[Rfam]
RNA sequence: GAGAUGUGAUGAGUACUAUUUUGGUCCGUGUUUCUGACUUCACCGUGACCGAUUAACCUUAACCAACCUCUGAUCUC
Numbered sequence: 001g002a003g004a005u006g007u008g009a010u011g012a013g014u015a016c017u018a019u020u021u022u023g024g025u026c027c028g029u030g031u032u033u034c035u036g037a038c039u040u041c042a043c044c045g046u047g048a049c050c051g052a053u054u055a056a057c058c059u060u061a062a063c064c065a066a067c068c069u070c071u072g073a074u075c076u077c
Stems, first nucleotide, its partner, number of pairs: 001077004
Background: A member of the RNA family "Small nucleolar RNA SNORD18" from Kalanchoe fedtschenkoi, 77 nucleotides long. The match comes from Rfam's covariance-model search (42 bits). Rfam classes the family as a C/D-box small nucleolar RNA. The family's consensus secondary structure was predicted with PFOLD. On this family, see Prislei et al., Nucleic Acids Res 1993: "Two different snoRNAs are encoded in introns of amphibian and human L1 ribosomal protein genes". Lineage of the source: Eukaryota > Viridiplantae > Embryophyta > Spermatophyta > Kalanchoe.